[Rfam]
RNA: Mammalian CPEB3 ribozyme
RNA sequence: GGUUGCAAGUUUGAGGCCAAAGCAGAAGUGCUUAUGGCAUGGCCUGUCAGGUUCAAAUGAAUCCGUGAAUUCUGCU
Numbered sequence: 001g002g003u004u005g006c007a008a009g010u011u012u013g014a015g016g017c018c019a020a021a022g023c024a025g026a027a028g029u030g031c032u033u034a035u036g037g038c039a040u041g042g043c044c045u046g047u048c049a050g051g052u053u054c055a056a057a058u059g060a061a062u063c064c065g066u067g068a069a070u071u072c073u074g075c076u
Stems, first nucleotide, its partner, number of pairs: 015044004021076007028040003048065001050063005